[Rfam]
Nucleotides: 100
Base pairs, nucleotide, nucleotide: 002099003098004097005096007095008094010092011091012090013089014088015087016086017085018084019075020074021073022072023071024069025068027067028066029065031063032062033061037057038056040054045053046052047051
Number, partner (000 for none) and nucleotide at each position: 001000u002099g003098c004097g005096c006000c007095g008094g009000a010092g011091c012090c013089g014088g015087g016086g017085c018084c019075u020074g021073a022072g023071c024069c025068c026000u027067g028066g029065u030000a031063g032062c033061g034000c035000g036000g037057g038056c039000c040054g041000c042000g043000a044000a045053c046052u047051c048000g049000u050000u051047g052046a053045g054040c055000u056038g057037c058000g059000c060000u061033u062032g063031c064000g065029g066028c067027c068025g069024g070000u071023g072022c073021u074020c075019a076000g077000c078000c079000u080000g081000c082000c083000a084018g085017g086016c087015c088014c089013c090012g091011g092010c093000c094008c095007c096005g097004c098003g099002c100000u

A member of the RNA family "mir-1199 microRNA precursor family" from Molossus molossus, 100 nucleotides long. The source organism's lineage runs through Eukaryota, Theria, Laurasiatheria, Molossidae and Molossus.